Rfam assigns this 64-nucleotide RNA from Bagarius yarrelli to the family "mir-7552 microRNA precursor family". The match comes from Rfam's covariance-model search (62 bits). NCBI's taxonomy places the organism under Eukaryota, Opisthokonta, Euteleostomi, Siluroidei, Bagarius.

RNA sequence: UUACAAUUAAAGGAUAUUUCCUGCAGACGCGAGCCAAACCGGAAAUGUCCCUUAAUUGUUGGGC
Numbered sequence: 001u002u003a004c005a006a007u008u009a010a011a012g013g014a015u016a017u018u019u020c021c022u023g024c025a026g027a028c029g030c031g032a033g034c035c036a037a038a039c040c041g042g043a044a045a046u047g048u049c050c051c052u053u054a055a056u057u058g059u060u061g062g063g064c
Stems, first nucleotide, its partner, number of pairs: 003059008012050010